[Rfam]
RNA: mir-1264 microRNA precursor family
RNA sequence: GGGUCCUCAGUAAGUAUUUGUUGAAAGAAUAAAUAAACUGACAAGUCUUAUUUGAGCACCUGUUAUG
Numbered sequence: 001g002g003g004u005c006c007u008c009a010g011u012a013a014g015u016a017u018u019u020g021u022u023g024a025a026a027g028a029a030u031a032a033a034u035a036a037a038c039u040g041a042c043a044a045g046u047c048u049u050a051u052u053u054g055a056g057c058a059c060c061u062g063u064u065a066u067g
Stems, first nucleotide, its partner, number of pairs: 001061004006056005011050004016046008